RNA sequence: CUCUUAUCAAGAGCGGUGGAGGGACAGGCCCGUAGAAACCGCGGCAACCUUUAGGAUAUUCCUAAAACGGUGCUAAUUCCUGCAAAGCCAUGCUUUGGAAGAUGAGAG
Numbered sequence: 001c002u003c004u005u006a007u008c009a010a011g012a013g014c015g016g017u018g019g020a021g022g023g024a025c026a027g028g029c030c031c032g033u034a035g036a037a038a039c040c041g042c043g044g045c046a047a048c049c050u051u052u053a054g055g056a057u058a059u060u061c062c063u064a065a066a067a068c069g070g071u072g073c074u075a076a077u078u079c080c081u082g083c084a085a086a087g088c089c090a091u092g093c094u095u096u097g098g099a100a101g102a103u104g105a106g107a108g
Stems, first nucleotide, its partner, number of pairs: 001108008013042005021031003025082004043074004048070002050066004078100001083097006
Shown here is a 108-nucleotide RNA sequence from Cerasibacillus quisquiliarum, a member of the family "SAM riboswitch aptamer (S box leader)". Its family is annotated with regulation of gene expression in the Gene Ontology. A search with the family's covariance model found it, with a score of 98 bits.